[Rfam]
RNA sequence: UACUGUUUGUGAUGAUGGGAAGCAAUGGGAAUCUCUCUGAAAGAGGCUGAGGAAUACUCUUGUGCUGAAACAGUA
Dot-bracket structure: (((((((.............................................................)))))))
Shown here is a 75-nucleotide RNA sequence from Ifrita kowaldi, a member of the family "Small nucleolar RNA SNORD79". It is annotated as a C/D-box small nucleolar RNA. Lineage of the source: Eukaryota > Sarcopterygii > Archelosauria > Archosauria > Ifrita. Rfam's curators write: snoRNA U79 or Z22 is found in intron 7 of the gas5 gene in humans and is also present in mice. The match comes from Rfam's covariance-model search (70 bits). The base pairs follow the family's consensus structure, which was predicted with PFOLD. Its family is annotated with nucleolus and RNA processing in the Gene Ontology.